A member of the RNA family "Selenocysteine transfer RNA" from a Clostridiales bacterium, 93 nucleotides long. The match comes from Rfam's covariance-model search (74 bits).
RNA sequence: GGAGGCGGAUGGGUCCUGGUGGGCCCCCUGGUCUUCAAAACCAGCGUGGGGCGUGAAGAGCGUCCCGGGUGUGUUCGAUUCGCACGCGCCUCC
Numbered sequence: 001g002g003a004g005g006c007g008g009a010u011g012g013g014u015c016c017u018g019g020u021g022g023g024c025c026c027c028c029u030g031g032u033c034u035u036c037a038a039a040a041c042c043a044g045c046g047u048g049g050g051g052c053g054u055g056a057a058g059a060g061c062g063u064c065c066c067g068g069g070u071g072u073g074u075u076c077g078a079u080u081c082g083c084a085c086g087c088g089c090c091u092c093c
Stems, first nucleotide, its partner, number of pairs: 001093007008085001011026006028044005047067005070084004